[Rfam]
RNA sequence: UUAGCAGACCUAGCCUUAUCGCUAGGAGUUUAACUCUUAGAGGAAAGUCCGGACACCGAAGAGUAAGCAUAGCGGAUAACAUCCGUCCAGUGUAAACUGAGGACAAGUGCAACAGAAAGAAUGUACAGGUAAUGCUGUAGUGAAAUCAGGUAAACUCUAUGCGGUGCAAUGCCACGUAUAUUAGAGCUCGAGUGCUACUCGCACGAUUCUAAGGGGUAGGCAGAUAGAUUUUUGCAGUAAUGCACUAACUAGAUAAAUGAUAAGGACUUUUUUGUAUUAAAAAGUUACAGAAUCCGGCUUAUUGGUCUGCUUUUUCU
Numbered sequence: 001u002u003a004g005c006a007g008a009c010c011u012a013g014c015c016u017u018a019u020c021g022c023u024a025g026g027a028g029u030u031u032a033a034c035u036c037u038u039a040g041a042g043g044a045a046a047g048u049c050c051g052g053a054c055a056c057c058g059a060a061g062a063g064u065a066a067g068c069a070u071a072g073c074g075g076a077u078a079a080c081a082u083c084c085g086u087c088c089a090g091u092g093u094a095a096a097c098u099g100a101g102g103a104c105a106a107g108u109g110c111a112a113c114a115g116a117a118a119g120a121a122u123g124u125a126c127a128g129g130u131a132a133u134g135c136u137g138u139a140g141u142g143a144a145a146u147c148a149g150g151u152a153a154a155c156u157c158u159a160u161g162c163g164g165u166g167c168a169a170u171g172c173c174a175c176g177u178a179u180a181u182u183a184g185a186g187c188u189c190g191a192g193u194g195c196u197a198c199u200c201g202c203a204c205g206a207u208u209c210u211a212a213g214g215g216g217u218a219g220g221c222a223g224a225u226a227g228a229u230u231u232u233u234g235c236a237g238u239a240a241u242g243c244a245c246u247a248a249c250u251a252g253a254u255a256a257a258u259g260a261u262a263a264g265g266a267c268u269u270u271u272u273u274g275u276a277u278u279a280a281a282a283a284g285u286u287a288c289a290g291a292a293u294c295c296g297g298c299u300u301a302u303u304g305g306u307c308u309g310c311u312u313u314u315u316c317u
Stems, first nucleotide, its partner, number of pairs: 003311008014265007022040008045300003049297005054166004063199001067162005072086005087101001088099004102157002107155002109151002124139005170222004181212005192204004229248002233244004
The record is a 317-nucleotide sequence from Tenacibaculum jejuense, which matches "Bacterial RNase P class A" in Rfam. The family's RNA type in Rfam is ribozyme. The source organism's lineage runs through Bacteria, Bacteroidota, Flavobacteriia, Flavobacteriaceae and Tenacibaculum. A search with the family's covariance model found it, with a score of 191 bits.